This 151-nucleotide RNA sequence from Brevibacillus panacihumi belongs to the Rfam family "c-di-AMP riboswitch aptamer (ydaO/yuaA leader)". A search with the family's covariance model found it, with a score of 70 bits.

RNA sequence: CAAACAAACAAGCCGAGACUUCCAGUUGGCUGGAAGUGCGGGGGAUGAUAUUGCGAAAGAAAUUUCGCUUGGGGUGAAUCGCUUACAGCGAUGGGUUGUAUCCUCAACCCAAAUCCGACAACUAACCUCGUAGGCAGAAAAAAGGAGACGA
Numbered sequence: 001c002a003a004a005c006a007a008a009c010a011a012g013c014c015g016a017g018a019c020u021u022c023c024a025g026u027u028g029g030c031u032g033g034a035a036g037u038g039c040g041g042g043g044g045a046u047g048a049u050a051u052u053g054c055g056a057a058a059g060a061a062a063u064u065u066c067g068c069u070u071g072g073g074g075u076g077a078a079u080c081g082c083u084u085a086c087a088g089c090g091a092u093g094g095g096u097u098g099u100a101u102c103c104u105c106a107a108c109c110c111a112a113a114u115c116c117g118a119c120a121a122c123u124a125a126c127c128u129c130g131u132a133g134g135c136a137g138a139a140a141a142a143a144g145g146a147g148a149c150g151a
Stems, first nucleotide, its partner, number of pairs: 012135003018037008038131006047070001072116003080090004093110004